[Rfam]
RNA: Eukaryotic large subunit ribosomal RNA, nucleotides 716 to 1029
Organism: Protostrongylus rufescens
Nucleotides: 314
Base pairs, nucleotide, nucleotide: 005170006169007168008167009166010165011164012163013162014161015160016159017158020044021043022042026038027037028036029035048055049054078120079119080118081117082116085112086111087110088109089108090107091106092105093104122153123152124150125149126148127146128145134139173312174311176309180302181301182300183299184298185297189278190277191276192275193274194273195272196271197270198269199268200266202234203233204232205231209226210225211224212223213222214221215220238263239262240261241260243259244258246257247256280290281289
Number, partner (000 for none) and nucleotide at each position: 001000g002000a003000g004000u005170g006169u007168a008167a009166c010165u011164u012163g013162u014161a015160c016159g017158c018000a019000a020044g021043u022042c023000a024000a025000u026038g027037g028036g029035u030000g031000g032000a033000a034000a035029a036028c037027c038026u039000u040000a041000a042022g043021g044020c045000g046000a047000a048055a049054u050000g051000a052000a053000a054049g055048u056000g057000a058000a059000g060000g061000c062000a063000c064000g065000g066000u067000u068000a069000a070000c071000c072000g073000g074000c075000u076000g077000a078120c079119a080118u081117g082116g083000g084000a085112a086111a087110c088109g089108u090107c091106u092105u093104c094000g095000a096000u097000c098000a099000c100000a101000g102000c103000g104093g105092a106091a107090g108089a109088u110087g111086u112085u113000g114000c115000a116082c117081c118080a119079u120078g121000g122153c123152c124150c125149u126148g127146u128145c129000u130000u131000g132000u133000c134139u135000g136000c137000a138000u139134g140000c141000a142000g143000a144000u145128g146127g147000g148126c149125a150124g151000u152123g153122g154000u155000a156000g157000a158017g159016c160015g161014u162013a163012c164011a165010g166009g167008u168007u169006g170005c171000g172000a173312c174311c175000c176309g177000a178000a179000a180302g181301a182300u183299g184298g185297u186000g187000a188000a189278c190277u191276a192275u193274g194273c195272c196271u197270g198269a199268g200266c201000a202234g203233g204232a205231u206000g207000a208000a209226g210225u211224c212223a213222g214221a215220g216000g217000a218000a219000a220215c221214u222213c223212u224211g225210a226209u227000g228000g229000a230000a231205g232204u233203c234202c235000g236000u237000a238263u239262c240261g241260g242000u243259u244258c245000u246257g247256a248000c249000g250000u251000g252000c253000a254000a255000a256247u257246c258244g259243a260241u261240c262239g263238a264000u265000a266200g267000a268199c269198u270197u271196g272195g273194g274193u275192a276191u277190a278189g279000g280290g281289g282000c283000g284000a285000a286000a287000g288000a289281c290280u291000a292000a293000u294000c295000g296000a297185a298184c299183c300182a301181u302180c303000u304000a305000g306000u307000a308000g309176c310000u311174g312173g313000u314000u